[Rfam]
MIR7486 microRNA precursor family: an 86-nucleotide sequence from Gossypium raimondii. The family has 9 seed sequences and 10,132 matches in Rfam 15.1. Pairs were carried over by alignment from the consensus structure, which was predicted with RNAalifold. Gene Ontology terms of the family: RISC complex and miRNA-mediated post-transcriptional gene silencing.
RNA sequence: CCCAAGGAAGCGCUUUGUCCACGUGGACAGAAAACGCGUCCUUGAGGGUGCGUUUCUGUCCACGUGGACAAAGCUCUUCCUUGGAG
Numbered sequence: 001c002c003c004a005a006g007g008a009a010g011c012g013c014u015u016u017g018u019c020c021a022c023g024u025g026g027a028c029a030g031a032a033a034a035c036g037c038g039u040c041c042u043u044g045a046g047g048g049u050g051c052g053u054u055u056c057u058g059u060c061c062a063c064g065u066g067g068a069c070a071a072a073g074c075u076c077u078u079c080c081u082u083g084g085a086g
Stems, first nucleotide, its partner, number of pairs: 002084009012074010023063011035052004040047002